The family of this 369-nucleotide RNA from Arthrobacter nitrophenolicus is "transfer-messenger RNA". A search with the family's covariance model found it, with a score of 173 bits. The base pairs follow the family's consensus structure, which is taken from published work.

RNA sequence: GGGGAUGAUCGGUUUCGACGGUGUUUGUCGCGACAGGUGAAGCGGGCCGAGGAUGCAGAAUUAUCUCGUUAACGCUUUCUGCAAAACAAUAAGUGCCAAACAAACGCGCACUGACUUCGCUCUUGCUGCCUAAGCAGUAAGACAGUCCGUCAGCCCGGGGUUGCUAUCGCCCCGGUUCCUGGCGUCAUUUAGAUAGCCACUGCUGUUUUCUCCCGUCAUCGGAGUAAACGGGACUUUUAGAUGACUGGGCCCGGAUCAGCCAGCUGUUUGCAGCAUGGCUGGGGCCGAGAAAAUCCGACGCAAACUGCGCCCGGAGAAGCCCUGACAACACGACAUCGGACGGGGGUUCAAUUCCCCCCAUCUCCACCA
Numbered sequence: 001g002g003g004g005a006u007g008a009u010c011g012g013u014u015u016c017g018a019c020g021g022u023g024u025u026u027g028u029c030g031c032g033a034c035a036g037g038u039g040a041a042g043c044g045g046g047c048c049g050a051g052g053a054u055g056c057a058g059a060a061u062u063a064u065c066u067c068g069u070u071a072a073c074g075c076u077u078u079c080u081g082c083a084a085a086a087c088a089a090u091a092a093g094u095g096c097c098a099a100a101c102a103a104a105c106g107c108g109c110a111c112u113g114a115c116u117u118c119g120c121u122c123u124u125g126c127u128g129c130c131u132a133a134g135c136a137g138u139a140a141g142a143c144a145g146u147c148c149g150u151c152a153g154c155c156c157g158g159g160g161u162u163g164c165u166a167u168c169g170c171c172c173c174g175g176u177u178c179c180u181g182g183c184g185u186c187a188u189u190u191a192g193a194u195a196g197c198c199a200c201u202g203c204u205g206u207u208u209u210c211u212c213c214c215g216u217c218a219u220c221g222g223a224g225u226a227a228a229c230g231g232g233a234c235u236u237u238u239a240g241a242u243g244a245c246u247g248g249g250c251c252c253g254g255a256u257c258a259g260c261c262a263g264c265u266g267u268u269u270g271c272a273g274c275a276u277g278g279c280u281g282g283g284g285c286c287g288a289g290a291a292a293a294u295c296c297g298a299c300g301c302a303a304a305c306u307g308c309g310c311c312c313g314g315a316g317a318a319g320c321c322c323u324g325a326c327a328a329c330a331c332g333a334c335a336u337c338g339g340a341c342g343g344g345g346g347u348u349c350a351a352u353u354c355c356c357c358c359c360a361u362c363u364c365c366a367c368c369a
Base pairs, nucleotide, nucleotide: 001365002364003363004362005361006360007359019338020337021336022335023334024333025332032326034324035323036322037321043313044312045311046310047309048068049067050066051065052064054083055082056081057080058079059078060077121142122141123140124139125138126137127136128135129134148184149183150182151181152180153179155175156174157173158172159171160170161169163197164196165195166194167193168192203231204230205229206228207227208226210224211223215245216244217243218242219241248286249285250284251283252282254280256278257277259274260273266305267304268303269302270299271297342358343357344356345355346354